The record is a 357-nucleotide RNA from Pelagibacterium halotolerans, which matches "Alphaproteobacteria transfer-messenger RNA" in Rfam. Gene Ontology term of the family: RNA catabolic process. Pairs were carried over by alignment from the consensus structure, which is taken from published work. The match comes from Rfam's covariance-model search (293 bits). Clan: tRNA clan.

[Rfam]
RNA sequence: CCUCUUCCCCUCGCGGCUCAUGGCCCCUAUAUUGAGCGUGCCGGCAACGGCUAUGGCGAUAAAUUGCCAUCGUAAUAAACCCAUCGGACCCGGGGGCAGUACCCGGCGCCUCCACCAAAAACUCUCUGUUUACAGAGACUUAUGGGGGCGAAACAGGAUCGACGAGGGCGUAAAGGGUGUGUUUUCGCUCGGCAUGGUACCACCGUUAUCGGACUAAAACUUAUAGUUGCUAAUGACAACAAUAAGGCUCCGGUCGCUCUCGCCGCUUAAGCGGUGCGAGAACUGGGAAUUGAAGUCCUACGCUCCUAGCCGGGCAUAGGCGGGGUCCGCAGGCACCUGGCAACAGAAGCCUGCAUU
Numbered sequence: 001c002c003u004c005u006u007c008c009c010c011u012c013g014c015g016g017c018u019c020a021u022g023g024c025c026c027c028u029a030u031a032u033u034g035a036g037c038g039u040g041c042c043g044g045c046a047a048c049g050g051c052u053a054u055g056g057c058g059a060u061a062a063a064u065u066g067c068c069a070u071c072g073u074a075a076u077a078a079a080c081c082c083a084u085c086g087g088a089c090c091c092g093g094g095g096g097c098a099g100u101a102c103c104c105g106g107c108g109c110c111u112c113c114a115c116c117a118a119a120a121a122c123u124c125u126c127u128g129u130u131u132a133c134a135g136a137g138a139c140u141u142a143u144g145g146g147g148g149c150g151a152a153a154c155a156g157g158a159u160c161g162a163c164g165a166g167g168g169c170g171u172a173a174a175g176g177g178u179g180u181g182u183u184u185u186c187g188c189u190c191g192g193c194a195u196g197g198u199a200c201c202a203c204c205g206u207u208a209u210c211g212g213a214c215u216a217a218a219a220c221u222u223a224u225a226g227u228u229g230c231u232a233a234u235g236a237c238a239a240c241a242a243u244a245a246g247g248c249u250c251c252g253g254u255c256g257c258u259c260u261c262g263c264c265g266c267u268u269a270a271g272c273g274g275u276g277c278g279a280g281a282a283c284u285g286g287g288a289a290u291u292g293a294a295g296u297c298c299u300a301c302g303c304u305c306c307u308a309g310c311c312g313g314g315c316a317u318a319g320g321c322g323g324g325g326u327c328c329g330c331a332g333g334c335a336c337c338u339g340g341c342a343a344c345a346g347a348a349g350c351c352u353g354c355a356u357u
Stems, first nucleotide, its partner, number of pairs: 040051004055189005066182002068179004080168003084165003090106005107150007190205003195216003200212002323338004329354006
A reference for the family is Williams and Bartel (1996), "Phylogenetic analysis of tmRNA secondary structure", RNA. Rfam classes the family as a non-coding RNA gene. Lineage of the source: Bacteria > Alphaproteobacteria > Hyphomicrobiales > Devosiaceae > Pelagibacterium halotolerans.